[Rfam]
RNA sequence: CGAUAAACGUUGAAGAGGACUAGUAGCUUUAGAGUCAGUAUCUACAGAGAGCCGGUGCUAGCUGGAAACCGGUGUUACUUUCUAAAGUGAACUCACCUCUGAGUGUCUGCUUGAAAUGAUAGUAGGGCAGACCGAGUGACAUUGCUCACUCGUUACCAAAAUGGACGAAAGAUGUCCAUGAGACGGCAGCAGGAUUGCCGUGAACAAGGGUGGUACCGCGAAAAACAAAGCUUUUUCGCCCCUUUG
Numbered sequence: 001c002g003a004u005a006a007a008c009g010u011u012g013a014a015g016a017g018g019a020c021u022a023g024u025a026g027c028u029u030u031a032g033a034g035u036c037a038g039u040a041u042c043u044a045c046a047g048a049g050a051g052c053c054g055g056u057g058c059u060a061g062c063u064g065g066a067a068a069c070c071g072g073u074g075u076u077a078c079u080u081u082c083u084a085a086a087g088u089g090a091a092c093u094c095a096c097c098u099c100u101g102a103g104u105g106u107c108u109g110c111u112u113g114a115a116a117u118g119a120u121a122g123u124a125g126g127g128c129a130g131a132c133c134g135a136g137u138g139a140c141a142u143u144g145c146u147c148a149c150u151c152g153u154u155a156c157c158a159a160a161a162u163g164g165a166c167g168a169a170a171g172a173u174g175u176c177c178a179u180g181a182g183a184c185g186g187c188a189g190c191a192g193g194a195u196u197g198c199c200g201u202g203a204a205c206a207a208g209g210g211u212g213g214u215a216c217c218g219c220g221a222a223a224a225a226c227a228a229a230g231c232u233u234u235u236u237c238g239c240c241c242c243u244u245u246g
Stems, first nucleotide, its partner, number of pairs: 007104002015099004026088006040076001042074001051073006106131007133152007183201007207243004218239008